A member of the RNA family "L31-Actinobacteria ribosomal protein leader" from Streptomyces morookaense, 47 nucleotides long. Rfam classes the family as a cis-regulatory leader. It scores 44 bits against the family's covariance model.
RNA sequence: UCGGCCCCGGUUCACGUACGGCAAUCCCGCCUCUACGACCCGGUGCC
Numbered sequence: 001u002c003g004g005c006c007c008c009g010g011u012u013c014a015c016g017u018a019c020g021g022c023a024a025u026c027c028c029g030c031c032u033c034u035a036c037g038a039c040c041c042g043g044u045g046c047c
Stems, first nucleotide, its partner, number of pairs: 003047003007043004015037004020031003